RNA sequence: CUCCAUCAGUGAUGACCUCUGUUUUGUGCCAUGUGUCUGGGCCACUGAUCCAAGUGAUGGGACUGAGGAACUGAGGAG
Dot-bracket structure: ((((......................................................................))))
A member of the RNA family "Small nucleolar RNA SNORD66" from Poecilia reticulata, 78 nucleotides long.
Rfam classes the family as a C/D-box small nucleolar RNA.
The family has 20 seed sequences and 1,346 matches in Rfam 15.1.
The source organism's lineage runs through Eukaryota, Craniata, Teleostei, Poeciliidae and Poecilia.
The family's consensus secondary structure was predicted with RNAalifold.
The match comes from Rfam's covariance-model search (74 bits).
From the family's description: snoRNA HBII-142 is part of the C/D family of snoRNAs. It is the human orthologue of the mouse MBII-142 snoRNA and is predicted to guide 2'O-ribose methylation of small 18S rRNA at residue C1272.